RNA sequence: AUAGGAAUAAUUCUUUCUAGUAAUGUGUUGCAACUCUACUAUAAAGGAUUUAUUCCUUUUU
Numbered sequence: 001a002u003a004g005g006a007a008u009a010a011u012u013c014u015u016u017c018u019a020g021u022a023a024u025g026u027g028u029u030g031c032a033a034c035u036c037u038a039c040u041a042u043a044a045a046g047g048a049u050u051u052a053u054u055c056c057u058u059u060u061u
Stems, first nucleotide, its partner, number of pairs: 003057008012048002014045001018041005025034002
RNA: S. pyogenes antisense RNA 392987
Organism: Streptococcus sp. DD10